[Rfam]
RNA sequence: AAGUUAGCAAUGAUUAUAAAAAUAAUUUUUCGUUUUGACUUGCUCAAUUCAAUUUGGACUUUACAGAUCUCUUAUUACAUUCAUAGAAUCUGAGCUAC
Numbered sequence: 001a002a003g004u005u006a007g008c009a010a011u012g013a014u015u016a017u018a019a020a021a022a023u024a025a026u027u028u029u030u031c032g033u034u035u036u037g038a039c040u041u042g043c044u045c046a047a048u049u050c051a052a053u054u055u056g057g058a059c060u061u062u063a064c065a066g067a068u069c070u071c072u073u074a075u076u077a078c079a080u081u082c083a084u085a086g087a088a089u090c091u092g093a094g095c096u097a098c
Stems, first nucleotide, its partner, number of pairs: 003098002006096002
Dot-bracket structure: ..((.((.......................................................................................))))
The family of this 98-nucleotide sequence from Theobroma cacao is "Small nucleolar RNA snoR8a".
Gene Ontology terms of the family: nucleolus and RNA processing.
NCBI's taxonomy places the organism under Eukaryota, Tracheophyta, Pentapetalae, rosids, Theobroma.
The family's consensus secondary structure was predicted with WAR.
It is annotated as a C/D-box small nucleolar RNA.